[Rfam]
RNA sequence: GGCCCAAAUUUGAAGUAGAGUAGAUUAGUAGAAACAGCUGUCCCUGCUAAUCUGCUGCAUUUCAAGUUUGGGCCC
Numbered sequence: 001g002g003c004c005c006a007a008a009u010u011u012g013a014a015g016u017a018g019a020g021u022a023g024a025u026u027a028g029u030a031g032a033a034a035c036a037g038c039u040g041u042c043c044c045u046g047c048u049a050a051u052c053u054g055c056u057g058c059a060u061u062u063c064a065a066g067u068u069u070g071g072g073c074c075c
Base pairs, nucleotide, nucleotide: 001074002073003072004071005070006069007068008067009066011064012063013062014061015060016059019056020055021054022053023052025050026049027048028047029046030045034041035040
Annotation: mir-5928 microRNA precursor family: a 75-nucleotide RNA from Haemonchus placei. Rfam 15.1 lists 1,672 matches to the family in 12 species. The family's consensus secondary structure was predicted with RNAalifold.